This 273-nucleotide sequence from Cynara cardunculus belongs to the Rfam family "RNase MRP". From the family's description: RNase MRP is an enzymatically active ribonucleoprotein with two distinct roles in eukaryotes. In mitochondria it plays a direct role in the initiation of mitochondrial DNA replication. By type it is a ribozyme. Its Rfam clan is "RNaseP clan". Lineage of the source: Eukaryota > Embryophyta > Tracheophyta > Carduoideae > Cynara cardunculus subsp. cardunculus. A search with the family's covariance model found it, with a score of 78 bits.
RNA sequence: CGACCAACGGACGAUGUGAUUGGGUUAUGGGUCCAUGUAAAUGGAUUCGGACUCAGGAAAGUCCCCGGGCUAAUUAGCCGCAGAGAUGCGGGCUCGGAAACGGGUUAAACUUCAGAACGAUUGAAUCCGGUUGGACCUUUCGGGGUUCGACGGGCUGAGACCGGUGUGGAGCCUAAUGGGUUCUAUAAUGUCUGAAGUGAGUUUGGCCGAUAUACACAGUCAUUCACAUGGUCAAGUUAAGACCAACUGAACGGGGCUUAUGAUCCGUUGGUC
Numbered sequence: 001c002g003a004c005c006a007a008c009g010g011a012c013g014a015u016g017u018g019a020u021u022g023g024g025u026u027a028u029g030g031g032u033c034c035a036u037g038u039a040a041a042u043g044g045a046u047u048c049g050g051a052c053u054c055a056g057g058a059a060a061g062u063c064c065c066c067g068g069g070c071u072a073a074u075u076a077g078c079c080g081c082a083g084a085g086a087u088g089c090g091g092g093c094u095c096g097g098a099a100a101c102g103g104g105u106u107a108a109a110c111u112u113c114a115g116a117a118c119g120a121u122u123g124a125a126u127c128c129g130g131u132u133g134g135a136c137c138u139u140u141c142g143g144g145g146u147u148c149g150a151c152g153g154g155c156u157g158a159g160a161c162c163g164g165u166g167u168g169g170a171g172c173c174u175a176a177u178g179g180g181u182u183c184u185a186u187a188a189u190g191u192c193u194g195a196a197g198u199g200a201g202u203u204u205g206g207c208c209g210a211u212a213u214a215c216a217c218a219g220u221c222a223u224u225c226a227c228a229u230g231g232u233c234a235a236g237u238u239a240a241g242a243c244c245a246a247c248u249g250a251a252c253g254g255g256g257c258u259u260a261u262g263a264u265c266c267g268u269u270g271g272u273c
Stems, first nucleotide, its partner, number of pairs: 002273010014229006021055006029048007059259003063256004079090004091106006111196006120189004127180002130177005231243003